[Rfam]
A member of the RNA family "Small nucleolar RNA Z13/snr52" from Aspergillus coremiiformis, 102 nucleotides long.
RNA sequence: AAUGAUCAAAUGAUGAAAUAUUUCGGAUGUAAACACAGACCUGUUCCGAAUUGCGCAAAACCGUGUGGAUAUUUUCCGUUGCCUUCCUUCUGAUAAGAUCAU
Numbered sequence: 001a002a003u004g005a006u007c008a009a010a011u012g013a014u015g016a017a018a019u020a021u022u023u024c025g026g027a028u029g030u031a032a033a034c035a036c037a038g039a040c041c042u043g044u045u046c047c048g049a050a051u052u053g054c055g056c057a058a059a060a061c062c063g064u065g066u067g068g069a070u071a072u073u074u075u076c077c078g079u080u081g082c083c084u085u086c087c088u089u090c091u092g093a094u095a096a097g098a099u100c101a102u
Base pairs, nucleotide, nucleotide: 003101004100005099024078025077026076027075

The organism belongs to Aspergillus subgen. Circumdati, within Eukaryota. By type it is a C/D-box small nucleolar RNA. The base pairs follow the family's consensus structure, which was predicted with PFOLD. It scores 92 bits against the family's covariance model. Rfam links the family to the GO terms RNA processing and nucleolus.